[Rfam]
RNA sequence: UUUGGUUACAGUUGUUCAACCAGUUACUAAUCUAACUAAUUGUAACCGGUUGAACAACUGAACCCAAA
Numbered sequence: 001u002u003u004g005g006u007u008a009c010a011g012u013u014g015u016u017c018a019a020c021c022a023g024u025u026a027c028u029a030a031u032c033u034a035a036c037u038a039a040u041u042g043u044a045a046c047c048g049g050u051u052g053a054a055c056a057a058c059u060g061a062a063c064c065c066a067a068a
Base pairs, nucleotide, nucleotide: 001068002067003066004065009060010059011058012057013056014055015054016053017052018051019050020049023046024045025044026043027042
The record is a 68-nucleotide sequence from Equus caballus, which matches "mir-582 microRNA precursor family" in Rfam. Rfam's curators put it in the seed alignment. The family has 14 seed sequences and 128 matches in Rfam 15.1. Pairs were carried over by alignment from the consensus structure, which was predicted with RNAalifold. Gene Ontology terms of the family: RISC complex and miRNA-mediated post-transcriptional gene silencing. The literature on the family includes a 2007 paper in Cancer Res by Lui et al., "Patterns of known and novel small RNAs in human cervical cancer".